[Rfam]
RNA sequence: GGAAGUUAAGAAACUGUUUCUUAACUUUUAACUAAAAAAAUUAAGAACCGGUUCUUAAACAAGGAUUUUAAGAACCGAUUUUUAACAUUUUUAGUUAAAAGUUAAGAAAUAUUUUCCUAACUUAC
Numbered sequence: 001g002g003a004a005g006u007u008a009a010g011a012a013a014c015u016g017u018u019u020c021u022u023a024a025c026u027u028u029u030a031a032c033u034a035a036a037a038a039a040a041u042u043a044a045g046a047a048c049c050g051g052u053u054c055u056u057a058a059a060c061a062a063g064g065a066u067u068u069u070a071a072g073a074a075c076c077g078a079u080u081u082u083u084a085a086c087a088u089u090u091u092u093a094g095u096u097a098a099a100a101g102u103u104a105a106g107a108a109a110u111a112u113u114u115u116c117c118u119a120a121c122u123u124a125c
Base pairs, nucleotide, nucleotide: 001125003123004122005121006120007119008118010116011115012114013113015111016110017109018108019107020106021105022104023103024102025101026100027099028098029097030096031095032094033093034092035091036090037089038088041085042084043083044082045081046080047079